[Rfam]
RNA sequence: AACUUAUCCAGAGAGGCGAAGGGAACUGGCCCGAUGAAGCCCGGCAACCUGCAUGCGUGCAAGGUGCUACAUCCAGCAAAAUGAAACCCAUUUUGGAAGAUAAGGU
Numbered sequence: 001a002a003c004u005u006a007u008c009c010a011g012a013g014a015g016g017c018g019a020a021g022g023g024a025a026c027u028g029g030c031c032c033g034a035u036g037a038a039g040c041c042c043g044g045c046a047a048c049c050u051g052c053a054u055g056c057g058u059g060c061a062a063g064g065u066g067c068u069a070c071a072u073c074c075a076g077c078a079a080a081a082u083g084a085a086a087c088c089c090a091u092u093u094u095g096g097a098a099g100a101u102a103a104g105g106u
Base pairs, nucleotide, nucleotide: 001106003104004103005102006101007100008099013042015041016040017039021032022031023030026076027075028074029073043068044067045066046065048064049063050061051060052059053058072098077095078094079093080092081091082090

The record is a 106-nucleotide RNA from Metabacillus indicus, which matches "SAM riboswitch aptamer (S box leader)" in Rfam. Rfam's curators write: The SAM riboswitch is found upstream of a number of genes which code for proteins involved in methionine or cysteine biosynthesis in Gram-positive bacteria. The SAM riboswitch acts at the level of transcription termination control. The predicted structure consists of a complex stem-loop region followed by a single stem loop terminator region.